[Rfam]
RNA sequence: AUGCUCUGGUUUCUCUUCAUCAUUCGAGCUAAUCUUUCGCCUUUUACUAAAGAUUAUCGUGGAGAGGAACAUCAUAAUGGGCGUAAAUUUAAUUUUUGGAAAUCCCACCGAUUGGUGGGGC
Dot-bracket structure: ..((((..(((((((((((..........((((((((...........))))))))...)))))))))))........))))....................(((((........))))).
RNA: U5 spliceosomal RNA
Organism: Stegodyphus mimosarum